[Rfam]
RNA: MIR8024 microRNA precursor family
Organism: Solanum tuberosum
RNA sequence: UCAAGGCAUGGGAAUUUGACAACUUGCAUAUUUGGAGGAUUUGAAGAUUUUAACUUGCAUACUUGAAAAAUUUGAAGACUUCAACU
Numbered sequence: 001u002c003a004a005g006g007c008a009u010g011g012g013a014a015u016u017u018g019a020c021a022a023c024u025u026g027c028a029u030a031u032u033u034g035g036a037g038g039a040u041u042u043g044a045a046g047a048u049u050u051u052a053a054c055u056u057g058c059a060u061a062c063u064u065g066a067a068a069a070a071u072u073u074g075a076a077g078a079c080u081u082c083a084a085c086u
Base pairs, nucleotide, nucleotide: 001083003081004080005079009076012073013072014071017068020065021064025059026058027057028056032053033052034051035050036049037048